RNA sequence: AGAAUCAGACAAGAACCUUGCUCUAGUACGAGAGGACCGAGUUAGAUGAACCUCUGGUAUACCUGUUAUUGUUUACUACCUAUAAAUAGGUUUGUUACAGUACGGCAGGAAAGCUACGUUCAGAAAGGAUAACUGCUGAUAGCGUCUUAAGCGGGAAGCCUAUCUUGGCAUGAUUCUUUAAUAAAGUGACUGUAGAUCACAGUUUUGAUAGGUUGCAGGUGUAAGCGGAGUAAUCCGUUAAGCUGGGCAAUACUAAAUUCUUAAGUAA
Numbered sequence: 001a002g003a004a005u006c007a008g009a010c011a012a013g014a015a016c017c018u019u020g021c022u023c024u025a026g027u028a029c030g031a032g033a034g035g036a037c038c039g040a041g042u043u044a045g046a047u048g049a050a051c052c053u054c055u056g057g058u059a060u061a062c063c064u065g066u067u068a069u070u071g072u073u074u075a076c077u078a079c080c081u082a083u084a085a086a087u088a089g090g091u092u093u094g095u096u097a098c099a100g101u102a103c104g105g106c107a108g109g110a111a112a113g114c115u116a117c118g119u120u121c122a123g124a125a126a127g128g129a130u131a132a133c134u135g136c137u138g139a140u141a142g143c144g145u146c147u148u149a150a151g152c153g154g155g156a157a158g159c160c161u162a163u164c165u166u167g168g169c170a171u172g173a174u175u176c177u178u179u180a181a182u183a184a185a186g187u188g189a190c191u192g193u194a195g196a197u198c199a200c201a202g203u204u205u206u207g208a209u210a211g212g213u214u215g216c217a218g219g220u221g222u223a224a225g226c227g228g229a230g231u232a233a234u235c236c237g238u239u240a241a242g243c244u245g246g247g248c249a250a251u252a253c254u255a256a257a258u259u260c261u262u263a264a265g266u267a268a
Stems, first nucleotide, its partner, number of pairs: 001177007011166004017045002020042004047122005055116003062109005067102006126161003133154005184262003188204005209255003212251005218244002225238005
The record is a 268-nucleotide part of an RNA, which matches "Bacterial large subunit ribosomal RNA" in Rfam. Pairs were carried over by alignment from the consensus structure, which is taken from published work.